Record summary: This 69-nucleotide sequence from Pseudoatta argentina belongs to the Rfam family "Small nucleolar RNA SNORD18". Rfam 15.1 lists 2,622 matches to the family in 960 species. Its family is annotated with RNA processing and nucleolus in the Gene Ontology. The family is grouped with related families in Rfam's "SNORD18 clan". A search with the family's covariance model found it, with a score of 42 bits. Pairs were carried over by alignment from the consensus structure, which was predicted with PFOLD. The source organism's lineage runs through Eukaryota, Opisthokonta, Metazoa, Eumetabola and Pseudoatta.
[Rfam]
Nucleotides: 069
Stems, first nucleotide, its partner, number of pairs: 001069004
Number, partner (000 for none) and nucleotide at each position: 001069u002068a003067a004066u005000c006000a007000u008000g009000a010000u011000g012000a013000u014000a015000u016000u017000a018000a019000u020000g021000g022000u023000c024000c025000g026000u027000g028000u029000u030000u031000c032000u033000g034000a035000g036000u037000g038000a039000c040000a041000a042000u043000g044000a045000u046000u047000a048000u049000u050000u051000a052000u053000a054000a055000c056000c057000a058000u059000u060000u061000a062000c063000u064000g065000a066004g067003u068002u069001a